[Rfam]
Rfam assigns this 119-nucleotide RNA from Candidatus Hakubella thermalkaliphila to the family "Group II catalytic intron D1-D4-2".
The base pairs follow the family's consensus structure.

RNA sequence: GAGGGUUAGGCCCCUCGGAGCCGGCUUGCAGGAGCAGGCUCCAAACCACCUCAAGCUGCUGUGGUCAAAAGCCAUGGUGGCAAGCGUUGAGGAAAAGGUCCCGCAAGAUGGGAUCAGGU
Numbered sequence: 001g002a003g004g005g006u007u008a009g010g011c012c013c014c015u016c017g018g019a020g021c022c023g024g025c026u027u028g029c030a031g032g033a034g035c036a037g038g039c040u041c042c043a044a045a046c047c048a049c050c051u052c053a054a055g056c057u058g059c060u061g062u063g064g065u066c067a068a069a070a071g072c073c074a075u076g077g078u079g080g081c082a083a084g085c086g087u088u089g090a091g092g093a094a095a096a097g098g099u100c101c102c103g104c105a106a107g108a109u110g111g112g113a114u115c116a117g118g119u
Stems, first nucleotide, its partner, number of pairs: 001016005017042006024035004047118001049092006055081002058078003062074004097115006
Group II introns are found in rRNA, tRNA and mRNA of organelles in fungi, plants and protists, and also in mRNA in bacteria. A reference for the family is Chu et al. (2001), "Control of branch-site choice by a group II intron", EMBO J.